RNA: FMN riboswitch aptamer (RFN element)
Organism: Phyllobacterium sp. YR620
RNA sequence: UAGUGUUCUCAGGGCGGGGCGAGAUUCCCCACCGGCGGUAAUCACCUUGCAUCACCCGAUGUCUGGUGCGAGCCCGCGAGCGCCUCCCGGUCAUCCGGGAGGGUCAGCAGAUUUCGGUGCAAUUCCGAAGCCGACGGUAUAGUCCGGAUGAAAGAGAACAAUC
Numbered sequence: 001u002a003g004u005g006u007u008c009u010c011a012g013g014g015c016g017g018g019g020c021g022a023g024a025u026u027c028c029c030c031a032c033c034g035g036c037g038g039u040a041a042u043c044a045c046c047u048u049g050c051a052u053c054a055c056c057c058g059a060u061g062u063c064u065g066g067u068g069c070g071a072g073c074c075c076g077c078g079a080g081c082g083c084c085u086c087c088c089g090g091u092c093a094u095c096c097g098g099g100a101g102g103g104u105c106a107g108c109a110g111a112u113u114u115c116g117g118u119g120c121a122a123u124u125c126c127g128a129a130g131c132c133g134a135c136g137g138u139a140u141a142g143u144c145c146g147g148a149u150g151a152a153a154g155a156g157a158a159c160a161a162u163c
Stems, first nucleotide, its partner, number of pairs: 004160007017029003031143002033133002035077004072131002080108002113129005135146003